[Rfam]
RNA sequence: GCAGACCUGUGUGCAUAGUGUCCCAUCUGUGUCUGGUGGUACGGUCUGCUUGUGUUCUGCAUUUAGACCGUACUGCUCACACAAACCCUGUGGCCAAAGAUGAACUCGAGAUCAUAGUACUGGUCUAGUGAUGUCUCAAAGACACGUCUCCCACUGGCCAGCCUCCACACUCUCAAACAUCU
Numbered sequence: 001g002c003a004g005a006c007c008u009g010u011g012u013g014c015a016u017a018g019u020g021u022c023c024c025a026u027c028u029g030u031g032u033c034u035g036g037u038g039g040u041a042c043g044g045u046c047u048g049c050u051u052g053u054g055u056u057c058u059g060c061a062u063u064u065a066g067a068c069c070g071u072a073c074u075g076c077u078c079a080c081a082c083a084a085a086c087c088c089u090g091u092g093g094c095c096a097a098a099g100a101u102g103a104a105c106u107c108g109a110g111a112u113c114a115u116a117g118u119a120c121u122g123g124u125c126u127a128g129u130g131a132u133g134u135c136u137c138a139a140a141g142a143c144a145c146g147u148c149u150c151c152c153a154c155u156g157g158c159c160a161g162c163c164u165c166c167a168c169a170c171u172c173u174c175a176a177a178c179a180u181c182u
Stems, first nucleotide, its partner, number of pairs: 013091003030083003034079003037075006044068005051061003108174004120161006127155004132146003136142002
Small nucleolar RNA SNORA23: a 182-nucleotide RNA from Chloroceryle aenea. It scores 157 bits against the family's covariance model. Gene Ontology terms of the family: nucleolus and RNA processing. The members of this family belong to the H/ACA class of snoRNAs which are thought to guide the sites of modification of uridines to pseudouridines. This family includes human snoRNA ACA23 (SNORA23) and mouse snoMBI-1. The family's RNA type in Rfam is H/ACA-box small nucleolar RNA.